The record is an 87-nucleotide RNA from Gossypium raimondii, which matches "MIR7486 microRNA precursor family" in Rfam.

RNA sequence: CACGUCAGCGCGACCUGCCGACGUGGAAGGAAAUCGCGUCCUUGAGGAAACGAUUUCCUUCCACGUCAGCAGGUCGUGCUGACGUGG
Numbered sequence: 001c002a003c004g005u006c007a008g009c010g011c012g013a014c015c016u017g018c019c020g021a022c023g024u025g026g027a028a029g030g031a032a033a034u035c036g037c038g039u040c041c042u043u044g045a046g047g048a049a050a051c052g053a054u055u056u057c058c059u060u061c062c063a064c065g066u067c068a069g070c071a072g073g074u075c076g077u078g079c080u081g082a083c084g085u086g087g
Base pairs, nucleotide, nucleotide: 001086002085003084004083005082006081007080008079009078010077011076012075013074014073015072016071017070018069020067021066023064024063025062026061027060028059029058030057031056032055033054034053035052036051040047041046
Pairs were carried over by alignment from the consensus structure, which was predicted with RNAalifold. The match comes from Rfam's covariance-model search (91 bits).